[Rfam]
Fluoride riboswitch aptamer (crcB RNA motif): a 66-nucleotide RNA sequence from Enterococcus thailandicus.
Pairs were carried over by alignment from the consensus structure, which is taken from published work.
Its family is annotated with response to fluoride and positive regulation of gene expression in the Gene Ontology.
Lineage of the source: Bacteria > Bacillota > Bacilli > Enterococcaceae > Enterococcus.

RNA sequence: UUAUGUGUGAGGGAUGGUGCUCCCUCCUAAACGCUGAGUAAAUCAGCUGAUGGCGCCUAUUGUAAA
Numbered sequence: 001u002u003a004u005g006u007g008u009g010a011g012g013g014a015u016g017g018u019g020c021u022c023c024c025u026c027c028u029a030a031a032c033g034c035u036g037a038g039u040a041a042a043u044c045a046g047c048u049g050a051u052g053g054c055g056c057c058u059a060u061u062g063u064a065a066a
Stems, first nucleotide, its partner, number of pairs: 010025004016057006033047004